[Rfam]
RNA: Bacterial RNase P class A
Organism: Leptolyngbya sp. FACHB-321
RNA sequence: AGAGUAAGCGCAGGCGGUUGCGGGCUGUUGCAAGAGCCUUGUGUGCUUGACGACAGCCCGAGGAAAGUCCGGGCUUCCGAAAGACCAAACUUGCUGGGUAACGCCCAGUGCGAGCGAUCGUGAGGAUAGUGCCACAGAAACAUACCGCCGAUUGAAGGGCUGAAGGCUAUAGGUUGCUUCUGCGAAGCAGCAGGAUAAAAGCUAAAUCACGUUUUUAUCCUUCAUACCUUAGCCUUUAGACUUUCAAGGUAAGGGUGCAAAGGUGCGGUAAGAGCGCACCAGCAGCAUUGAGAGGUGCUGGCUCGGUAAACCCCGGUUGGAAGCAAGGCUGCGGAACACUGGUUGGUCUUUUCCCAGUUCCAUGCAGAGGUAGGAGCGAUCCUAUUUUUGCCCGUCCGCUUGAGGUACCUGGUAACAGGUAUCCCAGAUAGAUAACUGCCCUCCUGGGUGCUAUGCAUUUGGGAGAACAGAACCCGGCUUAUGUCUUGCUCUCCUU
Dot-bracket structure: ((((((((.((((((((((.(((((((((......................)))))))))....[[[.[[[[[((((..........(((.(((((((.....)))))(((((....)))).)((...(((((...........(((((..((((((....................................................................................)))))))))..)).......((((((.......)))))).((((((((....))))))).)..)))..))))))))).))))...((.(...............................................................).))......((((((((....))))))))..........)))))))................................]]]]]]]].)))))))))))....